The record is an 86-nucleotide RNA from Triticum urartu, which matches "mir-395 microRNA precursor family" in Rfam. Lineage of the source: Eukaryota > Streptophyta > Spermatophyta > Magnoliopsida > Triticum. Rfam 15.1 lists 2,798 matches to the family in 234 species. About the family: mir-395 was identified in both Arabidopsis thaliana and Oryza sativa computationally and was later experimentally verified. mir-395 is thought to target mRNAs coding for ATP sulphurylases. A reference for the family is Jones-Rhoades and Bartel (2004), "Computational Identification of Plant MicroRNAs and Their Targets, Including a Stress-Induced miRNA", Mol Cell.

RNA sequence: GUAUUACCAAGAGUUCCCUGCAAGCACUUUACGAAGCACCUUUCCAAGGGCUUAUGUGAAGUGUUUGGGGGAACUCUCGGUGUAUC
Numbered sequence: 001g002u003a004u005u006a007c008c009a010a011g012a013g014u015u016c017c018c019u020g021c022a023a024g025c026a027c028u029u030u031a032c033g034a035a036g037c038a039c040c041u042u043u044c045c046a047a048g049g050g051c052u053u054a055u056g057u058g059a060a061g062u063g064u065u066u067g068g069g070g071g072a073a074c075u076c077u078c079g080g081u082g083u084a085u086c
Stems, first nucleotide, its partner, number of pairs: 005082004011076009022066012035053002